This 102-nucleotide RNA sequence from Bacillus aerolatus belongs to the Rfam family "Glycine riboswitch aptamer". Gene Ontology term of the family: glycine biosynthetic process.
RNA sequence: AUGAUUGUUGUAGGAGAGUGUGAAAGAAUAUGCCACCGAAGGAGCAAGUUCCAAAAAGACCCUUGGAACUAAUCUCUCAGGUAGAUGAACUGCAACGGGACG
Numbered sequence: 001a002u003g004a005u006u007g008u009u010g011u012a013g014g015a016g017a018g019u020g021u022g023a024a025a026g027a028a029u030a031u032g033c034c035a036c037c038g039a040a041g042g043a044g045c046a047a048g049u050u051c052c053a054a055a056a057a058g059a060c061c062c063u064u065g066g067a068a069c070u071a072a073u074c075u076c077u078c079a080g081g082u083a084g085a086u087g088a089a090c091u092g093c094a095a096c097g098g099g100a101c102g
Stems, first nucleotide, its partner, number of pairs: 006097008020033003035082003038078002042076003048069007